Annotation:
Rfam assigns this 164-nucleotide RNA sequence from Streptococcus pneumoniae to the family "Group II catalytic intron D1-D4-3".
RNA sequence: GGAAAUAAGAAUUGUCAGAAGAAGGGAUAGAGAAAUCGUGGCUCUACGAACAGGAACGUGAUAGUAAGGCGUAUAUAGCGGAUAAGGGGGUCUCAAACUCUAAAGUCCAAAAAGGUAGUCGUAACCUAUAUGCGUAAAUCACGAGAGUAAUUGAAUUCGUACUA
Numbered sequence: 001g002g003a004a005a006u007a008a009g010a011a012u013u014g015u016c017a018g019a020a021g022a023a024g025g026g027a028u029a030g031a032g033a034a035a036u037c038g039u040g041g042c043u044c045u046a047c048g049a050a051c052a053g054g055a056a057c058g059u060g061a062u063a064g065u066a067a068g069g070c071g072u073a074u075a076u077a078g079c080g081g082a083u084a085a086g087g088g089g090g091u092c093u094c095a096a097a098c099u100c101u102a103a104a105g106u107c108c109a110a111a112a113a114g115g116u117a118g119u120c121g122u123a124a125c126c127u128a129u130a131u132g133c134g135u136a137a138a139u140c141a142c143g144a145g146a147g148u149a150a151u152u153g154a155a156u157u158c159g160u161a162c163u164a
Stems, first nucleotide, its partner, number of pairs: 004013003024163002027160001030157002039153002041148005057143006069135003073131006080108004086101004